[Rfam]
Nucleotides: 142
Stems, first nucleotide, its partner, number of pairs: 002068002005065004011060005019044008078132003083124001085122001092118003097113004
Number, partner (000 for none) and nucleotide at each position: 001000c002068u003067u004000c005065u006064c007063u008062c009000a010000g011060c012059u013058c014057u015056g016000c017000u018000c019044a020043g021042u022041u023040a024039c025038g026037c027000u028000u029000g030000u031000c032000c033000u034000g035000u036000a037026g038025u039024g040023u041022a042021a043020u044019u045000g046000g047000c048000u049000u050000u051000a052000a053000u054000a055000a056015c057014a058013g059012a060011g061000a062008g063007a064006g065005a066000a067003a068002g069000u070000g071000a072000c073000u074000u075000g076000u077000u078132c079131u080130u081000u082000u083124a084000u085122g086000c087000a088000c089000g090000g091000c092118a093117g094116g095000u096000u097113g098112g099111c100110c101000u102000c103000a104000c105000a106000a107000c108000a109000u110100g111099g112098u113097c114000u115000u116094c117093c118092u119000g120000u121000u122085c123000c124083u125000u126000u127000a128000u129000g130080a131079g132078g133000a134000u135000c136000u137000a138000c139000a140000g141000g142000c